[Rfam]
RNA sequence: GGCUGGUCUAGGGUAGCUCCCGAAAAGCAGGCACCCACCUGCCCGGCCAGCCGAUCUACUCAAUGG
Numbered sequence: 001g002g003c004u005g006g007u008c009u010a011g012g013g014u015a016g017c018u019c020c021c022g023a024a025a026a027g028c029a030g031g032c033a034c035c036c037a038c039c040u041g042c043c044c045g046g047c048c049a050g051c052c053g054a055u056c057u058a059c060u061c062a063a064u065g066g
Stems, first nucleotide, its partner, number of pairs: 001052008011021003027042005034066002

A member of the RNA family "int-alpA RNA" from Pseudomonas pohangensis, 66 nucleotides long. The family's RNA type in Rfam is small RNA. The organism belongs to Pseudomonas, within Bacteria. The match comes from Rfam's covariance-model search (47 bits).